[Rfam]
RNA sequence: CCUGGGUGAGGUAGUAGGUUGUAUUGUAGGGAAAUUGCAAUAAUUUUUCAUUGCAGAUAUGAAAUCCACUGUACAACUUGCUAACUUUCCCGG
Numbered sequence: 001c002c003u004g005g006g007u008g009a010g011g012u013a014g015u016a017g018g019u020u021g022u023a024u025u026g027u028a029g030g031g032a033a034a035u036u037g038c039a040a041u042a043a044u045u046u047u048u049c050a051u052u053g054c055a056g057a058u059a060u061g062a063a064a065u066c067c068a069c070u071g072u073a074c075a076a077c078u079u080g081c082u083a084a085c086u087u088u089c090c091c092g093g
Stems, first nucleotide, its partner, number of pairs: 001093002004090003008087003012083013026069002032046004048064001
RNA: let-7 microRNA precursor family
Organism: Fopius arisanus